[Rfam]
RNA sequence: GCUGCAGCUGCAAGAGCUGCAGGUACAGCUGCAGGCUGCAGCUGCUUCAUUAGCUGCAGGAGGUGCAGCAUCUGCGGCAUCUGCAGCAGCUUCAACAGCUGCGGCGGAUGUAACGGAUACAGAGA
Numbered sequence: 001g002c003u004g005c006a007g008c009u010g011c012a013a014g015a016g017c018u019g020c021a022g023g024u025a026c027a028g029c030u031g032c033a034g035g036c037u038g039c040a041g042c043u044g045c046u047u048c049a050u051u052a053g054c055u056g057c058a059g060g061a062g063g064u065g066c067a068g069c070a071u072c073u074g075c076g077g078c079a080u081c082u083g084c085a086g087c088a089g090c091u092u093c094a095a096c097a098g099c100u101g102c103g104g105c106g107g108a109u110g111u112a113a114c115g116g117a118u119a120c121a122g123a124g125a
Stems, first nucleotide, its partner, number of pairs: 002059009014047002019045004024040001026038004066122001068120001070118005079109003083105002086102006
Dot-bracket structure: .(((((((((...((...((((.(.((((.....)))).).))))))...)))))))))......(.(.(((((....(((.((.((((((.....)))))).)).)))....))))).).)...